[Rfam]
RNA sequence: CAGUGAAAAAGGCAAACUAGCGGAAACGCUAGGACGCAAAACCACGGGUCUACGGACGCAAAAGGCGUCUACGAUCGCCGGGUUGCCACU
Numbered sequence: 001c002a003g004u005g006a007a008a009a010a011g012g013c014a015a016a017c018u019a020g021c022g023g024a025a026a027c028g029c030u031a032g033g034a035c036g037c038a039a040a041a042c043c044a045c046g047g048g049u050c051u052a053c054g055g056a057c058g059c060a061a062a063a064g065g066c067g068u069c070u071a072c073g074a075u076c077g078c079c080g081g082g083u084u085g086c087c088a089c090u
Stems, first nucleotide, its partner, number of pairs: 012037002017032006040084004045080003048075003055069004